[Rfam]
RNA sequence: AAGCUGAAGGUGAGUAUUGGAUGGAACCAAAUCUGCAGCUAUGCACAAGAUUUGGUUUCCUCCAAUGUCUCAUGUUCAGUUG
Numbered sequence: 001a002a003g004c005u006g007a008a009g010g011u012g013a014g015u016a017u018u019g020g021a022u023g024g025a026a027c028c029a030a031a032u033c034u035g036c037a038g039c040u041a042u043g044c045a046c047a048a049g050a051u052u053u054g055g056u057u058u059c060c061u062c063c064a065a066u067g068u069c070u071c072a073u074g075u076u077c078a079g080u081u082g
Stems, first nucleotide, its partner, number of pairs: 004079005011072004016066006023059008032050002